A member of the RNA family "RtT RNA" from Serratia proteamaculans, 116 nucleotides long. About the family: This family represents a bacterial cis-regulatory element known as RtT RNA. The exact function of RtT is unknown although it is thought that it may be involved in changing the cellular response in relation to amino acid starvation. Rfam links the family to the GO term cellular response to amino acid starvation. The base pairs follow the family's consensus structure, which is taken from published work.

[Rfam]
RNA sequence: UUAAAUUGCGGAAGGGGAAGGCGAAAGUCUUCAGCAAGGUUCGAGUUGUGCAGCGCAUCGCGCAGCCGGCCCGAAGGGUGAGAGUUAAGCGACGAACAAUCCUUCUCCCACCUAAA
Numbered sequence: 001u002u003a004a005a006u007u008g009c010g011g012a013a014g015g016g017g018a019a020g021g022c023g024a025a026a027g028u029c030u031u032c033a034g035c036a037a038g039g040u041u042c043g044a045g046u047u048g049u050g051c052a053g054c055g056c057a058u059c060g061c062g063c064a065g066c067c068g069g070c071c072c073g074a075a076g077g078g079u080g081a082g083a084g085u086u087a088a089g090c091g092a093c094g095a096a097c098a099a100u101c102c103u104u105c106u107c108c109c110a111c112c113u114a115a116a
Stems, first nucleotide, its partner, number of pairs: 015107007032080002035077001040075004047052001059068002